[Rfam]
RNA: ZMP/ZTP riboswitch aptamer (pfl RNA motif)
Organism: Eubacterium sp. AF36-5BH
RNA sequence: AAUCGUCCAUGCGACUGGCGGAUAAGUGGAGUUCACCACAGGGAGCAUGGUUUUAAGAAUGUAAGUCGACCGCCUGGGCAACCUCU
Numbered sequence: 001a002a003u004c005g006u007c008c009a010u011g012c013g014a015c016u017g018g019c020g021g022a023u024a025a026g027u028g029g030a031g032u033u034c035a036c037c038a039c040a041g042g043g044a045g046c047a048u049g050g051u052u053u054u055a056a057g058a059a060u061g062u063a064a065g066u067c068g069a070c071c072g073c074c075u076g077g078g079c080a081a082c083c084u085c086u
Base pairs, nucleotide, nucleotide: 005052007050008049009048010047011046012045015042016041017074018073019072020071021070026039027038028037029036065079066078067077